Rfam assigns this 138-nucleotide RNA sequence from Aureimonas sp. Leaf460 to the family "Alphaproteobacterial sRNA ar45".
The match comes from Rfam's covariance-model search (116 bits).
NCBI's taxonomy places the organism under Bacteria, Alphaproteobacteria, Hyphomicrobiales, Aurantimonadaceae, Aureimonas.
RNA sequence: GCCCAAAGUCGCACGAGCCUGUGGGCGUCCCCCGAUCCUCAAAUGCGAGGCCAUCGGGACGGUCCUGGAGAUAGCCUCCAGUCGGUUUCGCGUCAGCGAAGUCGAGGACGCCUUAAAGCAACGACGGUGCGGGCCUUU
Numbered sequence: 001g002c003c004c005a006a007a008g009u010c011g012c013a014c015g016a017g018c019c020u021g022u023g024g025g026c027g028u029c030c031c032c033c034g035a036u037c038c039u040c041a042a043a044u045g046c047g048a049g050g051c052c053a054u055c056g057g058g059a060c061g062g063u064c065c066u067g068g069a070g071a072u073a074g075c076c077u078c079c080a081g082u083c084g085g086u087u088u089c090g091c092g093u094c095a096g097c098g099a100a101g102u103c104g105a106g107g108a109c110g111c112c113u114u115a116a117a118g119c120a121a122c123g124a125c126g127g128u129g130c131g132g133g134c135c136u137u138u
Base pairs, nucleotide, nucleotide: 001134002133003132004131008125009124010123011122017119018118023113024112025111026110027109028108029107030106031058032057033056034055035054037050038049039048040047065081066080067079068078069077082105083104084103085102088099089098090097091096